[Rfam]
RNA sequence: UAACCUGUUCAGUGAUGGACAGCUGAAUCAUCAGAAGUCAGCCGAGGUCAUAGUACCUGCCUACUCGAGAAGACAGGGAAGGAC
Number, nucleotide and partner (000 for none) at each position: 001u025002a024003a000004c000005c022006u021007g020008u019009u018010c017011a016012g000013u000014g000015a000016u011017g010018g009019a008020c007021a006022g005023c000024u002025g001026a000027a000028u000029c000030a000031u000032c000033a000034g000035a000036a000037g000038u045039c044040a000041g000042c000043c000044g039045a038046g000047g084048u083049c082050a000051u000052a000053g000054u000055a000056c077057c076058u075059g074060c000061c072062u000063a000064c000065u000066c000067g000068a000069g000070a000071a000072g061073a000074c059075a058076g057077g056078g000079a000080a000081g000082g049083a048084c047
Rfam assigns this 84-nucleotide sequence from Bacillaceae bacterium SAS-127 to the family "Group II catalytic intron D1-D4-1". A reference for the family is Bonen and Vogel (2001), "The ins and outs of group II introns", Trends Genet. It scores 72 bits against the family's covariance model. Rfam links the family to the GO term Group II intron splicing.